[Rfam]
RNA sequence: GGGUGAGGUAGAGGCGCGAACGAUCAUGAGUACCGCUGCCGAGAGUCGGGAACUCCACGACGCAACGGAAAAGGGAUCUUCGCCGAAGCGGACAUUCACCCGGGAGUGUCUGGCUGGGCCUGCAUCGAACAGGUGCAGGACUGUCACAGGAAGCGUCCCUGGCUUUCUGUGGAGAACUAUCUCGCUG
Numbered sequence: 001g002g003g004u005g006a007g008g009u010a011g012a013g014g015c016g017c018g019a020a021c022g023a024u025c026a027u028g029a030g031u032a033c034c035g036c037u038g039c040c041g042a043g044a045g046u047c048g049g050g051a052a053c054u055c056c057a058c059g060a061c062g063c064a065a066c067g068g069a070a071a072a073g074g075g076a077u078c079u080u081c082g083c084c085g086a087a088g089c090g091g092a093c094a095u096u097c098a099c100c101c102g103g104g105a106g107u108g109u110c111u112g113g114c115u116g117g118g119c120c121u122g123c124a125u126c127g128a129a130c131a132g133g134u135g136c137a138g139g140a141c142u143g144u145c146a147c148a149g150g151a152a153g154c155g156u157c158c159c160u161g162g163c164u165u166u167c168u169g170u171g172g173a174g175a176a177c178u179a180u181c182u183c184g185c186u187g
Base pairs, nucleotide, nucleotide: 006182007181008180009179010178011177016083017082018081019080020079022078023077024076025075033068034067035066037064038063039062087115088114089113090111091110092109093108094107095106096105097104116142117141119139120138121137122136123135124134125133126132144172145171146170147169148168149167150166151165152164153163
Shown here is a 187-nucleotide RNA sequence from Effusibacillus lacus, a member of the family "Lysine riboswitch aptamer".
NCBI's taxonomy places the organism under Bacteria, Bacillota, Caryophanales, Alicyclobacillaceae, Effusibacillus.
A search with the family's covariance model found it, with a score of 111 bits.